[Rfam]
RNA sequence: GAUCUCUUGGUGUAGUUGGUUAUCACGUCUGUCUAACACACAGACGGUCACCAGUUCAAAUCUGGUAGAGAUCA
Number, nucleotide and partner (000 for none) at each position: 001g073002a072003u071004c070005u069006c068007u067008u000009g000010g026011u025012g024013u000014a000015g000016u000017u000018g000019g000020u000021u000022a000023u000024c012025a011026c010027g000028u044029c043030u042031g041032u040033c000034u000035a000036a000037c000038a000039c000040a032041c031042a030043g029044a028045c000046g000047g000048u000049c000050a066051c065052c064053a063054g062055u000056u000057c000058a000059a000060a000061u000062c054063u053064g052065g051066u050067a007068g006069a005070g004071a003072u002073c001074a000

Description:
tRNA: a 74-nucleotide RNA from Olpidium bornovanus. Pairs were carried over by alignment from the consensus structure, which is taken from published work. The source organism's lineage runs through Eukaryota, Olpidiomycotina, Olpidiomycetes, Olpidiaceae and Olpidium. Rfam classes the family as a transfer RNA.